[Rfam]
Rfam assigns this 126-nucleotide RNA from Rhizobium sp. BK376 to the family "Alphaproteobacterial ar14".

RNA sequence: CUCCCUCGAAGGCAGCGCACUCCUCCUCCCAGCGCUCCUUCGUCGACUGGCAACACUCCUCCUCCUCCCAGUUGCCAGUCAGGAUCAAGAGCCCGAUGCAUCCUCCUCCCGCAUCGGGCUCUUUCA
Numbered sequence: 001c002u003c004c005c006u007c008g009a010a011g012g013c014a015g016c017g018c019a020c021u022c023c024u025c026c027u028c029c030c031a032g033c034g035c036u037c038c039u040u041c042g043u044c045g046a047c048u049g050g051c052a053a054c055a056c057u058c059c060u061c062c063u064c065c066u067c068c069c070a071g072u073u074g075c076c077a078g079u080c081a082g083g084a085u086c087a088a089g090a091g092c093c094c095g096a097u098g099c100a101u102c103c104u105c106c107u108c109c110c111g112c113a114u115c116g117g118g119c120u121c122u123u124u125c126a
Stems, first nucleotide, its partner, number of pairs: 007042003011038002014036005045080010089121011

Overview: Smr14C2 was renamed NfeR1 (Nodule Formation Efficiency RNA) highly expressed in salt stress and during the symbiotic interaction on legume roots. The source organism's lineage runs through Bacteria, Alphaproteobacteria, Hyphomicrobiales, Rhizobiaceae and Rhizobium. A reference for the family is del Val et al. (2012), "A survey of sRNA families in alpha-proteobacteria", RNA Biol. The base pairs follow the family's consensus structure. Rfam links the family to the GO term biological process involved in symbiotic interaction.